Overview:
mir-2788 microRNA precursor family: a 92-nucleotide RNA from Diatraea saccharalis. The match comes from Rfam's covariance-model search (93 bits). Lineage of the source: Eukaryota > Eumetabola > Pyraloidea > Crambidae > Diatraea.
RNA sequence: CAAUGGUGGCGCCGUAUAGCUGGGGUUUCAAAGCGGCAUGUGCCUCCCAUUAUGCAAUGCCCUUGGAAAUCCCAAACGUGCUGGUGACCACU
Numbered sequence: 001c002a003a004u005g006g007u008g009g010c011g012c013c014g015u016a017u018a019g020c021u022g023g024g025g026u027u028u029c030a031a032a033g034c035g036g037c038a039u040g041u042g043c044c045u046c047c048c049a050u051u052a053u054g055c056a057a058u059g060c061c062c063u064u065g066g067a068a069a070u071c072c073c074a075a076a077c078g079u080g081c082u083g084g085u086g087a088c089c090a091c092u
Stems, first nucleotide, its partner, number of pairs: 008088001010086004014081003021074009031064003035061005041056003
Dot-bracket structure: .......(.(((((((....(((((((((.(((.(((((.(((..........))))))))))).)))))))))....))).)))).)....